The record is a 73-nucleotide sequence from Acholeplasma laidlawii, which matches "tRNA" in Rfam.
The family's consensus secondary structure is taken from published work.
It is one of the family's seed sequences.
RNA sequence: GCCGAAAUAGCUCAAUCGGUAGAGCAACUGAUUUGUAAUCAGUAGGUUGCGGGUUCAAUUCCUGUUUUCGGCA
Dot-bracket structure: (((((((..((((........)))).(((((.......))))).....(((((.......)))))))))))).